[Rfam]
RNA: Mammalian CPEB3 ribozyme
RNA sequence: AGAGGUCACAAGUUCAAGGCCAUAGCAGAAGCGCUUGUGGCUCAGCCCUGUCAGAUUCCAACAAAUCUGCAAAUUUUACU
Numbered sequence: 001a002g003a004g005g006u007c008a009c010a011a012g013u014u015c016a017a018g019g020c021c022a023u024a025g026c027a028g029a030a031g032c033g034c035u036u037g038u039g040g041c042u043c044a045g046c047c048c049u050g051u052c053a054g055a056u057u058c059c060a061a062c063a064a065a066u067c068u069g070c071a072a073a074u075u076u077u078a079c080u
Stems, first nucleotide, its partner, number of pairs: 018047003024080002027077004031043001033041001052069006
Dot-bracket structure: .................[[[...((.(((((.(.......).).]]]....((((((......))))))....)))).))